[Rfam]
RNA sequence: CUGGGCGUUGGGUGACCGGCGCCGAACACCGGGGAGAAGUCAGCAGAGGGCAUAGUAGGGACCAGGCAGGCGAAGCUAGUGAGGCACUCCAGGCC
Numbered sequence: 001c002u003g004g005g006c007g008u009u010g011g012g013u014g015a016c017c018g019g020c021g022c023c024g025a026a027c028a029c030c031g032g033g034g035a036g037a038a039g040u041c042a043g044c045a046g047a048g049g050g051c052a053u054a055g056u057a058g059g060g061a062c063c064a065g066g067c068a069g070g071c072g073a074a075g076c077u078a079g080u081g082a083g084g085c086a087c088u089c090c091a092g093g094c095c
Base pairs, nucleotide, nucleotide: 002026004023005022006021007020008019009018010017011016040047041046049095050094051093058088059087062084063083
Group II catalytic intron D1-D4-1: a 95-nucleotide RNA from a Planctomycetaceae bacterium.
NCBI's taxonomy places the organism under Bacteria, Planctomycetota, Planctomycetia, Planctomycetales, Planctomycetaceae.
Rfam's curators write: Group II introns are found in rRNA, tRNA and mRNA of organelles in fungi, plants and protists, and also in mRNA in bacteria.
It scores 46 bits against the family's covariance model.